[Rfam]
RNA sequence: GUGUCAUGGUCAUUGUUGACCAUUCAUAUGAACUCUGCAAUAGCAUUGAAGCUUACGUGGGGUUCAUAUAACGGCCAACAGAGACCAUUGAUGU
Numbered sequence: 001g002u003g004u005c006a007u008g009g010u011c012a013u014u015g016u017u018g019a020c021c022a023u024u025c026a027u028a029u030g031a032a033c034u035c036u037g038c039a040a041u042a043g044c045a046u047u048g049a050a051g052c053u054u055a056c057g058u059g060g061g062g063u064u065c066a067u068a069u070a071a072c073g074g075c076c077a078a079c080a081g082a083g084a085c086c087a088u089u090g091a092u093g094u
Stems, first nucleotide, its partner, number of pairs: 001094006008086004013081006020074002023071002026069013042053002
The record is a 94-nucleotide RNA sequence from Medicago truncatula, which matches "MIR2587 microRNA precursor family" in Rfam. Gene Ontology terms of the family: miRNA-mediated post-transcriptional gene silencing and RISC complex. The family's consensus secondary structure was predicted with RNAalifold. It scores 87 bits against the family's covariance model. For this family Rfam cites "Genome-wide Medicago truncatula small RNA analysis revealed novel microRNAs and isoforms differentially regulated in roots and nodules" (Lelandais-Briere et al., Plant Cell, 2009).